[Rfam]
RNA: Glutamine riboswitch aptamer (glnA leader)
RNA sequence: AUCGUUCAAUUUGCAACUUGCAAAUCGGAAGUAGGUAUACCCGAAGGAACGCGGA
Numbered sequence: 001a002u003c004g005u006u007c008a009a010u011u012u013g014c015a016a017c018u019u020g021c022a023a024a025u026c027g028g029a030a031g032u033a034g035g036u037a038u039a040c041c042c043g044a045a046g047g048a049a050c051g052c053g054g055a
Stems, first nucleotide, its partner, number of pairs: 003051005009025005028052001034042002